A member of the RNA family "MIR2629 microRNA precursor family" from Medicago truncatula, 72 nucleotides long. NCBI's taxonomy places the organism under Eukaryota, Embryophyta, Spermatophyta, Fabales, Medicago. The match comes from Rfam's covariance-model search (62 bits).
RNA sequence: UAUCGAGGUUUUCCUCGGCAGUUUACUGCCGCCAGUUUACUAAAACUUCGGCAGUUAACCGCCGAAGGGCAU
Number, nucleotide and partner (000 for none) at each position: 001u000002a000003u000004c000005g000006a000007g000008g000009u000010u000011u000012u068013c067014c000015u065016c064017g063018g062019c061020a000021g059022u058023u057024u000025a055026c054027u053028g052029c051030c050031g049032c000033c000034a000035g000036u000037u000038u000039a000040c000041u000042a000043a000044a000045a000046c000047u000048u000049c031050g030051g029052c028053a027054g026055u025056u000057a023058a022059c021060c000061g019062c018063c017064g016065a015066a000067g013068g012069g000070c000071a000072u000